[Rfam]
RNA sequence: CUCUGCCAGGCUUUGGCAGGGCAAAGGAG
Numbered sequence: 001c002u003c004u005g006c007c008a009g010g011c012u013u014u015g016g017c018a019g020g021g022c023a024a025a026g027g028a029g
Base pairs, nucleotide, nucleotide: 001021002020003019004018005017006016007015008014
The record is a 29-nucleotide RNA from Erpornis zantholeuca, which matches "L31-Firmicutes ribosomal protein leader" in Rfam. The family is grouped with related families in Rfam's "Ribosomal Protein L31 Leader clan". Lineage of the source: Eukaryota > Chordata > Archosauria > Theropoda > Erpornis. The family's consensus secondary structure is taken from published work. A reference for the family is Eckert and Weinberg (2020), "Discovery of 20 novel ribosomal leader candidates in bacteria and archaea", BMC Microbiol. It is annotated as a cis-regulatory leader.